Rfam assigns this 312-nucleotide RNA from Haladaptatus paucihalophilus to the family "Archaeal signal recognition particle RNA". A search with the family's covariance model found it, with a score of 188 bits. Gene Ontology terms of the family: SRP-dependent cotranslational protein targeting to membrane, signal sequence recognition and signal recognition particle, plasma membrane targeting. Taxonomically the source falls in Haladaptatus paucihalophilus (Archaea, Halobacteria, Halobacteriales, Haladaptataceae).
RNA sequence: AAGUGGACUAGGUUGGGCAGUUAGGCCCUGCUCCCCGCCCGCGCUAUGGUCUUGAGCGGGAACCAAACUCCGGGUACGUCCGGUCAGACCGGGCCGGGCCCCGAAAGCCAACGCAGAAGCCUCGUCCGACGGGGCCAGCGGUCCGCGGCGAACACUCGCAGGGGUGUCCCGUCGCGGUUAGUCGGUGGCAAUCCGUCAGGCACGGAAGUGAGCAGCGGACCGCCGAACAGCUGUCGCUCGUCGGAUCGCGGGGUGGAGGAGGCAACCGGGAUUCCCCGGUCCGGAACGCCGGGCAACCCCGGCCGUCCACAU
Numbered sequence: 001a002a003g004u005g006g007a008c009u010a011g012g013u014u015g016g017g018c019a020g021u022u023a024g025g026c027c028c029u030g031c032u033c034c035c036c037g038c039c040c041g042c043g044c045u046a047u048g049g050u051c052u053u054g055a056g057c058g059g060g061a062a063c064c065a066a067a068c069u070c071c072g073g074g075u076a077c078g079u080c081c082g083g084u085c086a087g088a089c090c091g092g093g094c095c096g097g098g099c100c101c102c103g104a105a106a107g108c109c110a111a112c113g114c115a116g117a118a119g120c121c122u123c124g125u126c127c128g129a130c131g132g133g134g135c136c137a138g139c140g141g142u143c144c145g146c147g148g149c150g151a152a153c154a155c156u157c158g159c160a161g162g163g164g165u166g167u168c169c170c171g172u173c174g175c176g177g178u179u180a181g182u183c184g185g186u187g188g189c190a191a192u193c194c195g196u197c198a199g200g201c202a203c204g205g206a207a208g209u210g211a212g213c214a215g216c217g218g219a220c221c222g223c224c225g226a227a228c229a230g231c232u233g234u235c236g237c238u239c240g241u242c243g244g245a246u247c248g249c250g251g252g253g254u255g256g257a258g259g260a261g262g263c264a265a266c267c268g269g270g271a272u273u274c275c276c277c278g279g280u281c282c283g284g285a286a287c288g289c290c291g292g293g294c295a296a297c298c299c300c301g302g303c304c305g306u307c308c309a310c311a312u
Base pairs, nucleotide, nucleotide: 001312003310004309005308006307007306008305011064012063013062014061015033016032017031018030019029020028038060039059040058041057042056044054070302071301072300073299074298078294079293080292081291082289089284090283091282092281093280094279095278096277097276098275100270101269102268103267107263108262109261112258114256119254120253121252122251123250124249125248126244127243128242129241130240131239132238133237134235136233137232138231140228141179143177144176145175146174147173148172149171150170152167153166154165155164156163157162182226183225184224185223186222187221188220192219193218194217195216196215201210202209203208
Dot-bracket structure: (.((((((..((((((((((.......))))))....(((((.(.........).))))))))).....(((((...(((((......((((((((((.((((...(((..(.(....((((((((((((((((.(((.((.((((((((.((((((....))))))..)))))))).)..(((((((...(((((....(((....)))....)))))))))))).)..))).).))))))))...))))))).).)..)))...))))....))))))))))....).))))...)))))..)))))).)